RNA: Group II catalytic intron D1-D4-3
RNA sequence: GAUGCCGCGAGGCAUUGGAUGAAAGAAGCUGAAAGCAAAUUCCCGAACUGACGAACAGGAACUGUCUCAGGCAUGAUCAAUGAGGUAAAUCUGCGAAAGAAGAUGAAGCCCGAUACCUGUACGCGAGUUGAUGGUGUAAAGACAGCAGUUGCAUGGGAAGAAAGAAAAUAUG
Numbered sequence: 001g002a003u004g005c006c007g008c009g010a011g012g013c014a015u016u017g018g019a020u021g022a023a024a025g026a027a028g029c030u031g032a033a034a035g036c037a038a039a040u041u042c043c044c045g046a047a048c049u050g051a052c053g054a055a056c057a058g059g060a061a062c063u064g065u066c067u068c069a070g071g072c073a074u075g076a077u078c079a080a081u082g083a084g085g086u087a088a089a090u091c092u093g094c095g096a097a098a099g100a101a102g103a104u105g106a107a108g109c110c111c112g113a114u115a116c117c118u119g120u121a122c123g124c125g126a127g128u129u130g131a132u133g134g135u136g137u138a139a140a141g142a143c144a145g146c147a148g149u150u151g152c153a154u155g156g157g158a159a160g161a162a163a164g165a166a167a168a169u170a171u172g
Stems, first nucleotide, its partner, number of pairs: 001016006030170002036164001040159006046150005062145005071137003076132006084110003089104004